[Rfam]
RNA: Small nucleolar RNA SNORD116
Organism: Colobus angolensis
RNA sequence: AGAUUGAUGAUGCUUCCAUAUAUACAUUUUUUUUUGUAAAGGUGAACAAAGUGAGCAAAAACUCAGUACCAUCAUCCUCAUCGAACUGAGGUCC
Number, nucleotide and partner (000 for none) at each position: 001a000002g093003a092004u091005u090006g000007a000008u000009g000010a000011u000012g000013c000014u000015u000016c000017c000018a000019u000020a000021u000022a000023u000024a000025c000026a000027u000028u057029u000030u055031u054032u053033u000034u049035u048036g047037u000038a000039a000040a000041g000042g000043u000044g000045a000046a000047c036048a035049a034050a000051g000052u000053g032054a031055g030056c000057a028058a000059a000060a000061a000062c000063u000064c000065a000066g000067u000068a000069c000070c000071a000072u000073c000074a000075u000076c000077c000078u000079c000080a000081u000082c000083g000084a000085a000086c000087u000088g000089a000090g005091g004092u003093c002094c000